[Rfam]
RNA sequence: UUUCCGCGAGACUUUUUUCCAGCAGUGAAUAAUAUUUUUGUUCACGGCUGAAAAGAAGUCUCGCAGGA
Numbered sequence: 001u002u003u004c005c006g007c008g009a010g011a012c013u014u015u016u017u018u019c020c021a022g023c024a025g026u027g028a029a030u031a032a033u034a035u036u037u038u039u040g041u042u043c044a045c046g047g048c049u050g051a052a053a054a055g056a057a058g059u060c061u062c063g064c065a066g067g068a
Stems, first nucleotide, its partner, number of pairs: 004067002007063008016054003020050004025045008
mir-3747 microRNA precursor family: a 68-nucleotide sequence from Apis mellifera. A search with the family's covariance model found it, with a score of 64 bits. The base pairs follow the family's consensus structure, which was predicted with RNAalifold.